Shown here is a 72-nucleotide sequence from Alaudala cheleensis, a member of the family "Small nucleolar RNA SNORD58". Taxonomically the source falls in Alaudala (Eukaryota, Vertebrata, Archosauria, Saurischia). The family is grouped with related families in Rfam's "SNORD58 clan". Rfam links the family to the GO terms RNA processing and nucleolus.

RNA sequence: UUGCUGUGAUUAUUGUCUUAGAACAUCUUUGGAAUACCUAUGAAAAAGCCCAGUAAGUUCUUUCUGAGCAAC
Numbered sequence: 001u002u003g004c005u006g007u008g009a010u011u012a013u014u015g016u017c018u019u020a021g022a023a024c025a026u027c028u029u030u031g032g033a034a035u036a037c038c039u040a041u042g043a044a045a046a047a048g049c050c051c052a053g054u055a056a057g058u059u060c061u062u063u064c065u066g067a068g069c070a071a072c
Stems, first nucleotide, its partner, number of pairs: 001071004
By type it is a C/D-box small nucleolar RNA.